Source information:
Shown here is a 259-nucleotide RNA sequence, a member of the family "FuFi-1 RNA". Pairs were carried over by alignment from the consensus structure, which is taken from published work.

[Rfam]
RNA sequence: AAUUUAAGCUGAUGCUACUAGGCUACAUUUGCGGAACUAAAACCGCAUAAGUGAAGCGGCAUAUCAUAGAAGUAAGCAGUAUCGUUGUUUACGAUUUAAUAAAAAUGUGUUUGGUAAGCUACUACCAAACAACUGAUAGACAAUGUCUGCGGUAUCAGACGAUAAAAAACGUAGUGCUAUCAGUAUUAAGUCUGCAAUAUGCUUUGGGUAAACAAAUUUAGAAAGAAUAGUUCGGUGACGAUACCACCGACUAUUUUUU
Numbered sequence: 001a002a003u004u005u006a007a008g009c010u011g012a013u014g015c016u017a018c019u020a021g022g023c024u025a026c027a028u029u030u031g032c033g034g035a036a037c038u039a040a041a042a043c044c045g046c047a048u049a050a051g052u053g054a055a056g057c058g059g060c061a062u063a064u065c066a067u068a069g070a071a072g073u074a075a076g077c078a079g080u081a082u083c084g085u086u087g088u089u090u091a092c093g094a095u096u097u098a099a100u101a102a103a104a105a106u107g108u109g110u111u112u113g114g115u116a117a118g119c120u121a122c123u124a125c126c127a128a129a130c131a132a133c134u135g136a137u138a139g140a141c142a143a144u145g146u147c148u149g150c151g152g153u154a155u156c157a158g159a160c161g162a163u164a165a166a167a168a169a170c171g172u173a174g175u176g177c178u179a180u181c182a183g184u185a186u187u188a189a190g191u192c193u194g195c196a197a198u199a200u201g202c203u204u205u206g207g208g209u210a211a212a213c214a215a216a217u218u219u220a221g222a223a224a225g226a227a228u229a230g231u232u233c234g235g236u237g238a239c240g241a242u243a244c245c246a247c248c249g250a251c252u253a254u255u256u257u258u259u
Stems, first nucleotide, its partner, number of pairs: 003056003007052001030047005037221005059202006072092007079244007093192008225256008234247001
The sequence is in the family's curated seed alignment.